[Rfam]
The family of this 87-nucleotide sequence from Striga hermonthica is "mir-156 microRNA precursor family". Taxonomically the source falls in Striga (Eukaryota, Magnoliopsida, Gunneridae, asterids). On this family, see Reinhart et al., Genes Dev 2002: "MicroRNAs in plants". Gene Ontology terms of the family: RISC complex and miRNA-mediated post-transcriptional gene silencing. This family represents the plant microRNA (miRNA) precursor mir-156.
RNA sequence: GUGACAGAAGAGAGUGAGCACAAAUGGUGUUUUCUUGCAUGAAAAAGCCAUGCUUGAAGCUAUGUGUGCUCACUCUCUCUCUGUCAC
Number, nucleotide and partner (000 for none) at each position: 001g087002u086003g085004a084005c083006a082007g081008a080009a000010g077011a076012g075013a074014g073015u072016g071017a070018g069019c068020a067021c066022a000023a000024a063025u062026g000027g000028u000029g000030u000031u000032u000033u000034c000035u000036u000037g000038c000039a000040u000041g000042a000043a000044a000045a000046a000047g000048c000049c000050a000051u000052g000053c000054u000055u000056g000057a000058a000059g000060c000061u000062a025063u024064g000065u000066g021067u020068g019069c018070u017071c016072a015073c014074u013075c012076u011077c010078u000079c000080u008081c007082u006083g005084u004085c003086a002087c001